A member of the RNA family "Flavo-1 RNA" from Pedobacter cryotolerans, 129 nucleotides long. The family's RNA type in Rfam is small RNA. The source organism's lineage runs through Bacteria, Bacteroidota, Sphingobacteriia, Sphingobacteriales and Pedobacter.
RNA sequence: UAUUUGCCGUAAAAGCUGGAUUGCAGCGAUAUCCUUUAUUUUCUAUUGAGCUUUGACAACUUUAAUAGCAAGGCUGAAAGAAAGUUGUCAAAGCUGAAAAUAAAGAUUUAGCGCAAAGCCAGACUGCCA
Number, nucleotide and partner (000 for none) at each position: 001u000002a000003u000004u000005u000006g000007c000008c000009g000010u000011a000012a000013a000014a000015g000016c000017u121018g120019g119020a000021u117022u116023g000024c000025a000026g112027c111028g000029a000030u000031a107032u106033c105034c000035u000036u000037u102038a101039u100040u099041u098042u097043c096044u000045a000046u000047u000048g000049a000050g000051c000052u000053u000054u000055g000056a000057c000058a000059a000060c000061u000062u000063u000064a000065a000066u000067a000068g000069c000070a000071a000072g000073g000074c000075u000076g000077a000078a000079a000080g000081a000082a000083a000084g000085u000086u000087g000088u000089c000090a000091a000092a000093g000094c000095u000096g043097a042098a041099a040100a039101u038102a037103a000104a000105g033106a032107u031108u000109u000110a000111g027112c026113g000114c000115a000116a022117a021118g000119c019120c018121a017122g000123a000124c000125u000126g000127c000128c000129a000